Nucleotides: 090
Stems, first nucleotide, its partner, number of pairs: 003029007011021001039057005062084006068077003
Number, partner (000 for none) and nucleotide at each position: 001000c002000a003029a004028u005027u006026g007025a008024g009023a010000c011021g012000c013000a014000g015000c016000a017000a018000u019000u020000g021011c022000u023009u024008c025007u026006u027005g028004a029003u030000a031000g032000u033000u034000u035000c036000u037000c038000c039057u040056c041055u042054a043053u044000u045000u046000c047000u048000c049000c050000u051000u052000u053043g054042u055041a056040g057039a058000a059000u060000u061000c062084g063083g064082c065081g066080c067079g068077a069076c070075c071000g072000c073000a074000a075070g076069g077068u078000u079067c080066g081065c082064g083063c084062c085000a086000u087000u088000u089000u090000u
Annotation:
Shown here is a 90-nucleotide sequence from Microvirgula aerodenitrificans, a member of the family "Neisseria metabolic switch regulator b (RcoF1/NgncR163)". The family's consensus secondary structure was predicted with RNAfold. About the family: Sibling sRNA described and independently named in three publications. NgncR163 is N. gonorrhoeae while the others are N. meningitidis RNAs. RcoF1 stands for: RNA regulating colonization factor 1. NmsRb_RcoF1_NgncR163 was shown to be the predominant sibling. They are tandemly arranged, structurally nearly identical and and share 70% sequence identity. They translationally down-regulate genes involved in basic metabolic processes including tricarboxylic acid cycle enzymes and amino acid uptake and degradation. The targets include: fumC, sdhC, gltA, sucC, prpB and prpC Their expression is under the control of RelA. Furthermore, they interact with Hfq and target mRNA that encodes putative colonization factor of the human nasopharynx (PrpB). Its family is annotated with tricarboxylic acid cycle, mRNA binding and protein binding in the Gene Ontology. NCBI's taxonomy places the organism under Bacteria, Pseudomonadati, Betaproteobacteria, Aquaspirillaceae, Microvirgula. The match comes from Rfam's covariance-model search (76 bits). The literature on the family includes a 2017 paper in Microbiology by Bauer et al., "The sibling sRNAs NgncR_162 and NgncR_163 of Neisseria gonorrhoeae participate in the expression control of metabolic, transport and regulatory proteins". The family's RNA type in Rfam is small RNA.